[Rfam]
RNA sequence: AUCUGCCGGGGGCGGCACAGUGACGCCUCCGGUGCGUACACAUCACACCGUGCCACGGGAAGAACGAGGCACUUCAGGGCGUU
Numbered sequence: 001a002u003c004u005g006c007c008g009g010g011g012g013c014g015g016c017a018c019a020g021u022g023a024c025g026c027c028u029c030c031g032g033u034g035c036g037u038a039c040a041c042a043u044c045a046c047a048c049c050g051u052g053c054c055a056c057g058g059g060a061a062g063a064a065c066g067a068g069g070c071a072c073u074u075c076a077g078g079g080c081g082u083u
Stems, first nucleotide, its partner, number of pairs: 004034011016022001050072005056066002